[Rfam]
RNA: mir-8834 microRNA precursor family
Organism: Canis lupus
RNA sequence: UGGAGGAACAACCACAGUGGUGGCGGCCAGCUCUGGAGCCCUGGCUUCAGCCCCCUCAGUAACUAUGGAGCUCUCUGUCUGCAGGGGCUUGGAGGCUCCGGGGGUGG
Numbered sequence: 001u002g003g004a005g006g007a008a009c010a011a012c013c014a015c016a017g018u019g020g021u022g023g024c025g026g027c028c029a030g031c032u033c034u035g036g037a038g039c040c041c042u043g044g045c046u047u048c049a050g051c052c053c054c055c056u057c058a059g060u061a062a063c064u065a066u067g068g069a070g071c072u073c074u075c076u077g078u079c080u081g082c083a084g085g086g087g088c089u090u091g092g093a094g095g096c097u098c099c100g101g102g103g104g105u106g107g
Base pairs, nucleotide, nucleotide: 002099003098004097005096009091010090011089012087013086019079020078021077022076023075025074026073029072030071031070032069033068034067035066037064041059042058043057